The family of this 61-nucleotide RNA sequence from Tateyamaria sp. ANG-S1 is "Singlet oxygen resistance RNA X". SorX (RSs2461)like SorY is a singlet oxygen induced sRNA that counteracts oxidative stress by targeting mRNA for a transporter in Rhodobacter. It also has an impact on resistance against organic hydroperoxides. A search with the family's covariance model found it, with a score of 47 bits.

RNA sequence: UCCCGGCGCGGAACACUUCCUCCCUGUCAGACUGGGCCGCGCUUCGUGCGCGGCCUUUUUU
Numbered sequence: 001u002c003c004c005g006g007c008g009c010g011g012a013a014c015a016c017u018u019c020c021u022c023c024c025u026g027u028c029a030g031a032c033u034g035g036g037c038c039g040c041g042c043u044u045c046g047u048g049c050g051c052g053g054c055c056u057u058u059u060u061u
Stems, first nucleotide, its partner, number of pairs: 001012003035055008

For this family Rfam cites "Regulation of a polyamine transporter by the conserved 3' UTR-derived sRNA SorX confers resistance to singlet oxygen and organic hydroperoxides in Rhodobacter sphaeroides" (Peng et al., RNA Biol, 2016). Pairs were carried over by alignment from the consensus structure. Rfam classes the family as a small RNA.